[Rfam]
Nucleotides: 139
Stems, first nucleotide, its partner, number of pairs: 036112003040108003043101005049095004056089002059086003066080001068078003
Number, partner (000 for none) and nucleotide at each position: 001000g002000g003000u004000c005000a006000a007000a008000a009000a010000u011000a012000a013000a014000a015000a016000a017000g018000a019000u020000a021000a022000u023000g024000a025000a026000a027000a028000c029000a030000a031000u032000g033000u034000u035000c036112g037111u038110a039000a040108a041107u042106a043101c044100a045099u046098a047097u048000u049095g050094g051093u052092g053000g054000u055000g056089g057088c058000a059086u060085c061084c062000g063000u064000u065000a066080c067000a068078a069077c070076u071000c072000c073000g074000g075000c076070a077069g078068u079000c080066g081000u082000a083000a084061g085060g086059g087000a088057g089056c090000a091000g092052u093051g094050c095049u096000c097047g098046u099045a100044u101043g102000u103000a104000u105000a106042u107041a108040u109000g110038u111037a112036c113000a114000a115000u116000a117000u118000a119000g120000a121000u122000a123000u124000a125000u126000a127000a128000a129000a130000g131000a132000g133000c134000c135000c136000u137000g138000u139000c
Bacteroidete tryptophan peptide leader RNA: a 139-nucleotide RNA sequence. The sequence is in the family's curated seed alignment. It is annotated as a cis-regulatory leader.